Notes:
Rfam assigns this 86-nucleotide RNA from Macaca mulatta to the family "mir-590 microRNA precursor family". The source organism's lineage runs through Eukaryota, Metazoa, Amniota, Cercopithecinae and Macaca.
RNA sequence: AGCCAGUCAGAAAUGAGCUUAUUCAUAAAAGUGCAGUAUGGUGGAGUCAGUCUGUAAUUUUAUGUAUAAGCUGGUCUCUAACUGAA
Numbered sequence: 001a002g003c004c005a006g007u008c009a010g011a012a013a014u015g016a017g018c019u020u021a022u023u024c025a026u027a028a029a030a031g032u033g034c035a036g037u038a039u040g041g042u043g044g045a046g047u048c049a050g051u052c053u054g055u056a057a058u059u060u061u062a063u064g065u066a067u068a069a070g071c072u073g074g075u076c077u078c079u080a081a082c083u084g085a086a
Base pairs, nucleotide, nucleotide: 004084005083006082007081009079010078011077013075014074016072017071018070019069020068021067022066024064025063026062027061028060029059030058032056033055034054035053036052
Gene Ontology terms of the family: RISC complex and miRNA-mediated post-transcriptional gene silencing.